Description
MIR6288 microRNA precursor family: a 92-nucleotide RNA sequence from Prunus persica. Its family is annotated with RISC complex and miRNA-mediated post-transcriptional gene silencing in the Gene Ontology. A search with the family's covariance model found it, with a score of 80 bits.
RNA sequence: UCAAAACUAGUCAUUUGUCAUUUUCUCAUUGGUUCGUAGUGUGUUAAAUUUUUCUAAGAAGCACUUAGAAAAUGACAAGUGGCUAAUUUUGA
Numbered sequence: 001u002c003a004a005a006a007c008u009a010g011u012c013a014u015u016u017g018u019c020a021u022u023u024u025c026u027c028a029u030u031g032g033u034u035c036g037u038a039g040u041g042u043g044u045u046a047a048a049u050u051u052u053u054c055u056a057a058g059a060a061g062c063a064c065u066u067a068g069a070a071a072a073u074g075a076c077a078a079g080u081g082g083c084u085a086a087u088u089u090u091g092a
Base pairs, nucleotide, nucleotide: 002091003090004089005088006087008085009084010083011082012081013080014079015078016077017076018075019074020073021072022071023070024069025068026067028065030063031062033060034059035058037056038055039054